[Rfam]
Norovirus cis-acting replication element (CRE): a 52-nucleotide RNA from Norovirus norwalkense.
RNA sequence: AGUGGGUACCCCCACCACGUGCGCAAAAACGAGCACUGGAAUGGGGAAUCUU
Numbered sequence: 001a002g003u004g005g006g007u008a009c010c011c012c013c014a015c016c017a018c019g020u021g022c023g024c025a026a027a028a029a030c031g032a033g034c035a036c037u038g039g040a041a042u043g044g045g046g047a048a049u050c051u052u
Stems, first nucleotide, its partner, number of pairs: 004051002009045003015039003021036001023034002

It is annotated as a cis-regulatory element. On this family, see Victoria et al., BMC Res Notes 2009: "Phylogenetic prediction of cis-acting elements: a cre-like sequence in Norovirus genome?". Taxonomically the source falls in Norovirus isolates (Viruses, Orthornavirae, Norovirus norwalkense, Norwalk virus).